[Rfam]
Shown here is a 72-nucleotide RNA from Curvibacter sp. AEP1-3, a member of the family "tRNA".
NCBI's taxonomy places the organism under Bacteria, Pseudomonadati, Pseudomonadota, Comamonadaceae, Curvibacter.
A search with the family's covariance model found it, with a score of 65 bits.
RNA sequence: GGGCGAUUAGCUCAGGGGUAGAGCACUGCAUUCACACUGCAGGGGUCACAUGUUCGAUCCAUGUAUCGCCCA
Dot-bracket structure: (((((((..((((.......)))).(((((.......))))).....(((((.......)))))))))))).